[Rfam]
RNA sequence: CCCCUAUGAGGAAGAAGAUCCAUAUGAUAGGAAGUGCCAUAUGACACUCCAAACAGCAGCAUAUAC
Numbered sequence: 001c002c003c004c005u006a007u008g009a010g011g012a013a014g015a016a017g018a019u020c021c022a023u024a025u026g027a028u029a030g031g032a033a034g035u036g037c038c039a040u041a042u043g044a045c046a047c048u049c050c051a052a053a054c055a056g057c058a059g060c061a062u063a064u065a066c
Base pairs, nucleotide, nucleotide: 014060031050033048034047035046036045
A member of the RNA family "Small nucleolar RNA U49" from Camellia sinensis, 66 nucleotides long. The family has 5 seed sequences and 340 matches in Rfam 15.1. For this family Rfam cites "Multiple snoRNA gene clusters from Arabidopsis" (Brown et al., RNA, 2001). Gene Ontology terms of the family: nucleolus and RNA processing. Rfam classes the family as a C/D-box small nucleolar RNA.